[Rfam]
RNA sequence: CAACCAUCCAGAGCGGCUGAGUGACCUGGCACGACGACGCCGCAGCAACCCCUCCGACGAGCUCGACGUCGGGGCGAGGGUGCUACCGCCACGGACCGAUGGAGG
Numbered sequence: 001c002a003a004c005c006a007u008c009c010a011g012a013g014c015g016g017c018u019g020a021g022u023g024a025c026c027u028g029g030c031a032c033g034a035c036g037a038c039g040c041c042g043c044a045g046c047a048a049c050c051c052c053u054c055c056g057a058c059g060a061g062c063u064c065g066a067c068g069u070c071g072g073g074g075c076g077a078g079g080g081u082g083c084u085a086c087c088g089c090c091a092c093g094g095a096c097c098g099a100u101g102g103a104g105g
Stems, first nucleotide, its partner, number of pairs: 001105001004102005013043005021032003027091003044084004049080002051076001053074002088097001
This 105-nucleotide RNA sequence from Sanguibacter sp. Leaf3 belongs to the Rfam family "SAM riboswitch aptamer (S box leader)". Gene Ontology term of the family: regulation of gene expression. Its Rfam clan is "SAM clan". The source organism's lineage runs through Bacteria, Bacillati, Actinomycetota, Micrococcales and Sanguibacter.